Description: The record is a 229-nucleotide RNA from Fusarium poae, which matches "Group I catalytic intron" in Rfam. A reference for the family is Cech (1990), "Self-splicing of group I introns", Annu Rev Biochem. It scores 74 bits against the family's covariance model. Group I catalytic introns are large self-splicing ribozymes. They catalyse their own excision from mRNA, tRNA and rRNA precursors in a wide range of organisms. The core secondary structure consists of 9 paired regions (P1-P9). NCBI's taxonomy places the organism under Eukaryota, Fungi, sordariomyceta, Hypocreomycetidae, Fusarium sambucinum species complex.
RNA sequence: AUCCUCUGCUAAAUUUUUUUUUUGAUUUAGCAGAGGCUAGUAAAGAUUUGGCCUCUUAAAAGAUCACAAAUUGCUGGAAAACCCUUAAUUAUGGAUAAUCAGCAGGUAAGCAACUAUAAAUUAGUUGAACCUUCAGAGGCUAAACGUGAUCAUUUAAUAUAAGGCGCUAGCUCUAGACUUCGUCUCUAUAUUAAAUAAGAUAUAGUCCAGACUUAUAUGAAAAUAUAAG
Numbered sequence: 001a002u003c004c005u006c007u008g009c010u011a012a013a014u015u016u017u018u019u020u021u022u023u024g025a026u027u028u029a030g031c032a033g034a035g036g037c038u039a040g041u042a043a044a045g046a047u048u049u050g051g052c053c054u055c056u057u058a059a060a061a062g063a064u065c066a067c068a069a070a071u072u073g074c075u076g077g078a079a080a081a082c083c084c085u086u087a088a089u090u091a092u093g094g095a096u097a098a099u100c101a102g103c104a105g106g107u108a109a110g111c112a113a114c115u116a117u118a119a120a121u122u123a124g125u126u127g128a129a130c131c132u133u134c135a136g137a138g139g140c141u142a143a144a145c146g147u148g149a150u151c152a153u154u155u156a157a158u159a160u161a162a163g164g165c166g167c168u169a170g171c172u173c174u175a176g177a178c179u180u181c182g183u184c185u186c187u188a189u190a191u192u193a194a195a196u197a198a199g200a201u202a203u204a205g206u207c208c209a210g211a212c213u214u215a216u217a218u219g220a221a222a223a224u225a226u227a228a229g
Base pairs, nucleotide, nucleotide: 005034006033007032008031009030010029011028012027013026014025015024062151063150064149065148066147067146072104073103074102075101076100077099083094084093086091105132106131111127112126113125114124115123136208138207139206140205141204142203153195154194155193156192157191158190159189160188161187214227215226216225217224218223